[Rfam]
RNA sequence: AAGCGUAGUUUGGGUCGGACCUCCGCUGGCUUUUUCCACGGUGAUACUCCAAAGCAAGUGGUUAUCACCGGGUGAAAACUGGUAGAGGUCCGAUCCACUCGG
Numbered sequence: 001a002a003g004c005g006u007a008g009u010u011u012g013g014g015u016c017g018g019a020c021c022u023c024c025g026c027u028g029g030c031u032u033u034u035u036c037c038a039c040g041g042u043g044a045u046a047c048u049c050c051a052a053a054g055c056a057a058g059u060g061g062u063u064a065u066c067a068c069c070g071g072g073u074g075a076a077a078a079c080u081g082g083u084a085g086a087g088g089u090c091c092g093a094u095c096c097a098c099u100c101g102g
Stems, first nucleotide, its partner, number of pairs: 016092007025083005031077004036072002039070001041068006
Shown here is a 102-nucleotide RNA from Caenorhabditis briggsae, a member of the family "mir-36 microRNA precursor family".
Rfam 15.1 lists 199 matches to the family in 31 species.
On this family, see Ohler et al., RNA 2004: "Patterns of flanking sequence conservation and a characteristic upstream motif for microRNA gene identification".
Rfam links the family to the GO terms miRNA-mediated post-transcriptional gene silencing and RISC complex.
A search with the family's covariance model found it, with a score of 65 bits.